The record is a 79-nucleotide sequence from Clupea harengus, which matches "mir-551 microRNA precursor family" in Rfam. It scores 52 bits against the family's covariance model. The base pairs follow the family's consensus structure, which was predicted with RNAalifold. NCBI's taxonomy places the organism under Eukaryota, Opisthokonta, Gnathostomata, Osteoglossocephalai, Clupea.

[Rfam]
RNA sequence: CGACCCCUUGGAGUCAGGCGUGGGUGAAGCCUGUUUCCCUCCAGGCAGCCAGGCGACCCACUCUUGAUUUCAGAGGUUG
Numbered sequence: 001c002g003a004c005c006c007c008u009u010g011g012a013g014u015c016a017g018g019c020g021u022g023g024g025u026g027a028a029g030c031c032u033g034u035u036u037c038c039c040u041c042c043a044g045g046c047a048g049c050c051a052g053g054c055g056a057c058c059c060a061c062u063c064u065u066g067a068u069u070u071c072a073g074a075g076g077u078u079g
Stems, first nucleotide, its partner, number of pairs: 002078004007073001010071006017064002022059004029054004
Gene Ontology terms of the family: miRNA-mediated post-transcriptional gene silencing and RISC complex.